A member of the RNA family "Fluoride riboswitch aptamer (crcB RNA motif)" from Candidatus Methylacidiphilum fumarolicum, 80 nucleotides long.
The match comes from Rfam's covariance-model search (44 bits).
RNA sequence: AAAGCAAUUGGUAAUGGAGUUUACCAUCCAAUCUUUUGGAAAACCCUUCUUCUUUAAGAAGUGAUAACUCCUACGACAAC
Numbered sequence: 001a002a003a004g005c006a007a008u009u010g011g012u013a014a015u016g017g018a019g020u021u022u023a024c025c026a027u028c029c030a031a032u033c034u035u036u037u038g039g040a041a042a043a044c045c046c047u048u049c050u051u052c053u054u055u056a057a058g059a060a061g062u063g064a065u066a067a068c069u070c071c072u073a074c075g076a077c078a079a080c
Stems, first nucleotide, its partner, number of pairs: 010025004016071006046061006
Dot-bracket structure: .........[[[[..((((((]]]]....................((((((....))))))....)))))).........